TPP riboswitch aptamer (THI element): a 112-nucleotide sequence from Bacillus sp. DNRA2. The organism belongs to Bacillus, within Bacteria. Rfam's curators write: Vitamin B(1) in its active form thiamin pyrophosphate (TPP) is an essential coenzyme that is synthesised by coupling of pyrimidine and thiazole moieties in bacteria.

RNA sequence: CUUAACUACUAGGGGUGCCCAGAAAAGGGCUGAGAGGAAAACGAUGUUCGUUUUUAAACCCUUUGGACCUGAUCUGGGUGAUGCCAGCGGAGGAAAGUAGUGUGAAAUUUUC
Numbered sequence: 001c002u003u004a005a006c007u008a009c010u011a012g013g014g015g016u017g018c019c020c021a022g023a024a025a026a027g028g029g030c031u032g033a034g035a036g037g038a039a040a041a042c043g044a045u046g047u048u049c050g051u052u053u054u055u056a057a058a059c060c061c062u063u064u065g066g067a068c069c070u071g072a073u074c075u076g077g078g079u080g081a082u083g084c085c086a087g088c089g090g091a092g093g094a095a096a097g098u099a100g101u102g103u104g105a106a107a108u109u110u111u112c
Base pairs, nucleotide, nucleotide: 006100007099008098009097010096011062012061013060014059016056017030018029019028020027037055038054039053040052041051042050043049044048068093069092070091074087075086076085077084